[Rfam]
RNA sequence: AUGAAGACGAUGAAGAGGAGUAGUAGGGAAGUUUCAAGCAUUCAGAGAGACAGCGGUUGGUGAAAGCUGUCCUUGUACUUCGUGAACUCACCUUGGAUGUCGCAGAAGCGAACGAUACCUAGUAGUUUCUGCCGGUGAAGUCGCCGAUAUCGACCUUCGAGUGAGCGUUUUUAAGAAACGUUAAUUUGGGUGGUACCGCGGGAAUCAAGCCUCUCGUCCCUUUU
Numbered sequence: 001a002u003g004a005a006g007a008c009g010a011u012g013a014a015g016a017g018g019a020g021u022a023g024u025a026g027g028g029a030a031g032u033u034u035c036a037a038g039c040a041u042u043c044a045g046a047g048a049g050a051c052a053g054c055g056g057u058u059g060g061u062g063a064a065a066g067c068u069g070u071c072c073u074u075g076u077a078c079u080u081c082g083u084g085a086a087c088u089c090a091c092c093u094u095g096g097a098u099g100u101c102g103c104a105g106a107a108g109c110g111a112a113c114g115a116u117a118c119c120u121a122g123u124a125g126u127u128u129c130u131g132c133c134g135g136u137g138a139a140g141u142c143g144c145c146g147a148u149a150u151c152g153a154c155c156u157u158c159g160a161g162u163g164a165g166c167g168u169u170u171u172u173a174a175g176a177a178a179c180g181u182u183a184a185u186u187u188g189g190g191u192g193g194u195a196c197c198g199c200g201g202g203a204a205u206c207a208a209g210c211c212u213c214u215c216g217u218c219c220c221u222u223u224u
Base pairs, nucleotide, nucleotide: 007100008099015094016093017092018091026083028081029080030079031078038072049071050070051069052068053067054066103131104130105129106128107127108126109125133146134145135144164182165181166180167179168178169177170176188220189219190218198217199216200215201214202213
The record is a 224-nucleotide sequence from Halobacillus salinus, which matches "T-box leader" in Rfam. Its family is annotated with tRNA binding in the Gene Ontology. The base pairs follow the family's consensus structure, which is taken from published work. The family's RNA type in Rfam is cis-regulatory leader. Taxonomically the source falls in Halobacillus (Bacteria, Bacillota, Bacilli, Caryophanales).